[Rfam]
RNA sequence: GCCGUCAUAGCUCAGGGGCAGAGCACUUCCAUGGUAAGGAAGGGGUCGUUGGUUCAAAUCCAAUUGACGGCA
Numbered sequence: 001g002c003c004g005u006c007a008u009a010g011c012u013c014a015g016g017g018g019c020a021g022a023g024c025a026c027u028u029c030c031a032u033g034g035u036a037a038g039g040a041a042g043g044g045g046u047c048g049u050u051g052g053u054u055c056a057a058a059u060c061c062a063a064u065u066g067a068c069g070g071c072a
Stems, first nucleotide, its partner, number of pairs: 001071007010024004026042005048064005
This 72-nucleotide RNA from Mycoplasma struthionis belongs to the Rfam family "tRNA".
The organism belongs to Mycoplasma, within Bacteria.
The family's RNA type in Rfam is transfer RNA.